Rfam assigns this 121-nucleotide sequence from Halanaerobium hydrogeniformans to the family "PyrR binding site". Taxonomically the source falls in Halanaerobium (Bacteria, Bacillati, Bacillota, Halanaerobiales). A reference for the family is Bonner et al. (2001), "Molecular recognition of pyr mRNA by the Bacillus subtilis attenuation regulatory protein PyrR", Nucleic Acids Res. A search with the family's covariance model found it, with a score of 58 bits. By type it is a cis-regulatory element. This family represents the PyrR binding site and terminator structure.

RNA sequence: UUGUCCUUUUAAAUCAGUCCAGAGAGGCUGGCAAAGGAAGAUUGCUUUAUAAAAAUUAGAGAGCAGCAAAAUUCUAAGUGCUUUUAUAUCUUUUAGUAAAUUUUUCUAAUAGAUAUUUAUU
Numbered sequence: 001u002u003g004u005c006c007u008u009u010u011a012a013a014u015c016a017g018u019c020c021a022g023a024g025a026g027g028c029u030g031g032c033a034a035a036g037g038a039a040g041a042u043u044g045c046u047u048u049a050u051a052a053a054a055a056u057u058a059g060a061g062a063g064c065a066g067c068a069a070a071a072u073u074c075u076a077a078g079u080g081c082u083u084u085u086a087u088a089u090c091u092u093u094u095a096g097u098a099a100a101u102u103u104u105u106c107u108a109a110u111a112g113a114u115a116u117u118u119a120u121u
Stems, first nucleotide, its partner, number of pairs: 004038006014031006051082001054079001056077006086116006093109004098104002